A member of the RNA family "Ruegeria cis52 sRNA" from Histidinibacterium lentulum, 179 nucleotides long.
Rfam links the family to the GO term regulation of gene expression.
The family's consensus secondary structure was predicted with RNAfold.
Taxonomically the source falls in Histidinibacterium (Bacteria, Pseudomonadota, Rhodobacterales, Paracoccaceae).
Rfam classes the family as a small RNA.
RNA sequence: UUCGCAGCGCGUGCUUCAGCACGAUGUUGCGGAAGCUGACGCCCUUCAGACGCGCCGUGCGGAUGUAUUGCGCGGUCAUCACCUCGGUCAUCGAGGCGCGGGUCAUGCGGGCGAUAUAGCCCAUGCCGUAGAGGGCGAUGGUCAUCACAGGCAGGGUGAAGUUGACGAAGGUCGCCUGU
Numbered sequence: 001u002u003c004g005c006a007g008c009g010c011g012u013g014c015u016u017c018a019g020c021a022c023g024a025u026g027u028u029g030c031g032g033a034a035g036c037u038g039a040c041g042c043c044c045u046u047c048a049g050a051c052g053c054g055c056c057g058u059g060c061g062g063a064u065g066u067a068u069u070g071c072g073c074g075g076u077c078a079u080c081a082c083c084u085c086g087g088u089c090a091u092c093g094a095g096g097c098g099c100g101g102g103u104c105a106u107g108c109g110g111g112c113g114a115u116a117u118a119g120c121c122c123a124u125g126c127c128g129u130a131g132a133g134g135g136c137g138a139u140g141g142u143c144a145u146c147a148c149a150g151g152c153a154g155g156g157u158g159a160a161g162u163u164g165a166c167g168a169a170g171g172u173c174g175c176c177u178g179u
Stems, first nucleotide, its partner, number of pairs: 005140002008137003012133001014131002016128001019126003028123002031120001040111001042109001046105001048103001051100004055075008082096005146178002150173003156163001